[Rfam]
RNA: mir-282 microRNA precursor family
RNA sequence: UCUUGGUAUGAAUCUAGCCUCUACUAGGCUUUGUCUGUGUUCCAUCAAUUGGAUUUUUGCAUAAAAAUUUAAUAUUCAGACAUAGCCUAAAAGAGGUUAGGUGAAACAGGAAAU
Numbered sequence: 001u002c003u004u005g006g007u008a009u010g011a012a013u014c015u016a017g018c019c020u021c022u023a024c025u026a027g028g029c030u031u032u033g034u035c036u037g038u039g040u041u042c043c044a045u046c047a048a049u050u051g052g053a054u055u056u057u058u059g060c061a062u063a064a065a066a067a068u069u070u071a072a073u074a075u076u077c078a079g080a081c082a083u084a085g086c087c088u089a090a091a092a093g094a095g096g097u098u099a100g101g102u103g104a105a106a107c108a109g110g111a112a113a114u
Base pairs, nucleotide, nucleotide: 012102013101014100015099016098017097018096019095020094027087028086029085030084032082033081034080035079036078
Dot-bracket structure: ...........(((((((((......((((.(((((.........................................))))).))))......)))))))))............